[Rfam]
RNA sequence: ACCAUCCUUUUCUUGGGGUUGAGCUGCUGGCUAAUGAAUGUUUAUUGAGGUCAGUACUGCUAACACCACAAACAACACCAAAGCAUCCCUAGUAUGUAUAUAUUAGUGAGGUGCAAUUUUUGGACCC
Dot-bracket structure: .....((((.....))))..(.(..(((((((.....(.......)..)))))))..).)......................(((((..((((((....))))))....))))).............